The family of this 35-nucleotide RNA is "S16-Flavobacteria ribosomal protein leader". It is annotated as a cis-regulatory leader. The base pairs follow the family's consensus structure, which is taken from published work.

[Rfam]
RNA sequence: AUUAAUAACCGAGAUCGUGUAUCUCACAAAUUAAU
Number, nucleotide and partner (000 for none) at each position: 001a035002u034003u033004a032005a031006u030007a000008a000009c000010c000011g025012a024013g023014a022015u021016c000017g000018u000019g000020u000021a015022u014023c013024u012025c011026a000027c000028a000029a000030a006031u005032u004033a003034a002035u001